[Rfam]
RNA sequence: AGAGGCCCUCCGUGGCUGGGGUGGAACGCUUGCCUCGUCGCUUUGGUGACAAAGCAAGUAUCCCGCCAGGCCACCCACACUGCCUGC
Numbered sequence: 001a002g003a004g005g006c007c008c009u010c011c012g013u014g015g016c017u018g019g020g021g022u023g024g025a026a027c028g029c030u031u032g033c034c035u036c037g038u039c040g041c042u043u044u045g046g047u048g049a050c051a052a053a054g055c056a057a058g059u060a061u062c063c064c065g066c067c068a069g070g071c072c073a074c075c076c077a078c079a080c081u082g083c084c085u086g087c
Base pairs, nucleotide, nucleotide: 004084005083006082012074013073014072015071016070017069020067021066022065023064024063026061028059029058030057031056032055033054037050038049039048040047041046

This 87-nucleotide RNA sequence from Myotis myotis belongs to the Rfam family "mir-9195 microRNA precursor family". Its family is annotated with RISC complex and miRNA-mediated post-transcriptional gene silencing in the Gene Ontology. It scores 93 bits against the family's covariance model. Pairs were carried over by alignment from the consensus structure, which was predicted with RNAalifold.